mir-3473 microRNA precursor family: a 78-nucleotide RNA from Mesocricetus auratus. The family's consensus secondary structure was predicted with RNAalifold.
RNA sequence: ACCUCUGAGCCAUUUCUCCAGCCCCUUCUUUGGGUUUUUUUAAGACAUAGUUUUGGGCUGGAGAGAUGGCUCAGAGGU
Dot-bracket structure: .(((((((((((((((((((((((..............................))))))))))))))))))))))).